Shown here is a 71-nucleotide sequence from Chryseobacterium salivictor, a member of the family "DUF805 RNA".

[Rfam]
RNA sequence: UAAAUGUGGAGACCAGAAACCACUUAAAAAAAACGGGGCAAAUUCCGAAAAGCCAAAUGAUUUGGAAACAA
Numbered sequence: 001u002a003a004a005u006g007u008g009g010a011g012a013c014c015a016g017a018a019a020c021c022a023c024u025u026a027a028a029a030a031a032a033a034c035g036g037g038g039c040a041a042a043u044u045c046c047g048a049a050a051a052g053c054c055a056a057a058u059g060a061u062u063u064g065g066a067a068a069c070a071a
Stems, first nucleotide, its partner, number of pairs: 006023004037054003044065002
Notes:
By type it is a cis-regulatory element. The family is grouped with related families in Rfam's "DUF805 clan". The family has 46 seed sequences and 281 matches in Rfam 15.1.